[Rfam]
RNA sequence: GCCUUGGGGCAAGGGUGACCUUACGAAUCGUGUCAGGUCCGGAAGGAAGCAGCACUAAGUAUGAGUGACUUUGUGCUCCAAGUUGAU
Numbered sequence: 001g002c003c004u005u006g007g008g009g010c011a012a013g014g015g016u017g018a019c020c021u022u023a024c025g026a027a028u029c030g031u032g033u034c035a036g037g038u039c040c041g042g043a044a045g046g047a048a049g050c051a052g053c054a055c056u057a058a059g060u061a062u063g064a065g066u067g068a069c070u071u072u073g074u075g076c077u078c079c080a081a082g083u084u085g086a087u
Base pairs, nucleotide, nucleotide: 001087003085004081005080006079007078008077009076010073012072013071014070015069016068020063022061023060024059030055031054032053033052038047039046040045
Bacterial small signal recognition particle RNA: an 87-nucleotide RNA sequence from Secundilactobacillus mixtipabuli.
NCBI's taxonomy places the organism under Bacteria, Bacilli, Lactobacillales, Lactobacillaceae, Secundilactobacillus.
On this family, see Rosenblad et al., RNA Biol 2009: "Kinship in the SRP RNA family".
A search with the family's covariance model found it, with a score of 54 bits.